Shown here is a 148-nucleotide RNA sequence from Paraburkholderia sp. BL10I2N1, a member of the family "Group II catalytic intron D1-D4-7". From the family's description: Group II introns are found in rRNA, tRNA and mRNA of organelles in fungi, plants and protists, and also in mRNA in bacteria. The match comes from Rfam's covariance-model search (109 bits). Rfam 15.1 lists 1,296 matches to the family in 705 species.
[Rfam]
RNA sequence: CCUGCUGUACGGCCAGCAGUUGCCUACUUGGACAGGCGCGGCGGGUAACUACCGGGUCUGAAGCUCCAAGGACAAUGUACUCGUCGAAAGACACCACGGCUCGGUGACGAUACGUGAUGACGCUGCGAGCCGCAAUGCGGCGUAGAGG
Numbered sequence: 001c002c003u004g005c006u007g008u009a010c011g012g013c014c015a016g017c018a019g020u021u022g023c024c025u026a027c028u029u030g031g032a033c034a035g036g037c038g039c040g041g042c043g044g045g046u047a048a049c050u051a052c053c054g055g056g057u058c059u060g061a062a063g064c065u066c067c068a069a070g071g072a073c074a075a076u077g078u079a080c081u082c083g084u085c086g087a088a089a090g091a092c093a094c095c096a097c098g099g100c101u102c103g104g105u106g107a108c109g110a111u112a113c114g115u116g117a118u119g120a121c122g123c124u125g126c127g128a129g130c131c132g133c134a135a136u137g138c139g140g141c142g143u144a145g146a147g148g
Base pairs, nucleotide, nucleotide: 002019003018004017005016006015007014028069029068030067031066032065033060034059035058036057037056039054040053041052043050044049083092084091085090093118095116096115102109103108122141123140124139125138126137127136